[Rfam]
RNA sequence: GGCAGGGGGUUUGCGAGCACCCCGUGAGGCGACAGCCCAAGAUUCGCGUCCAUCAACCCUCGAAUGGGAGGACGCACCAUG
Numbered sequence: 001g002g003c004a005g006g007g008g009g010u011u012u013g014c015g016a017g018c019a020c021c022c023c024g025u026g027a028g029g030c031g032a033c034a035g036c037c038c039a040a041g042a043u044u045c046g047c048g049u050c051c052a053u054c055a056a057c058c059c060u061c062g063a064a065u066g067g068g069a070g071g072a073c074g075c076a077c078c079a080u081g
Stems, first nucleotide, its partner, number of pairs: 006023005046075006
Shown here is an 81-nucleotide sequence, a member of the family "chrB-a RNA". The family's consensus secondary structure is taken from published work.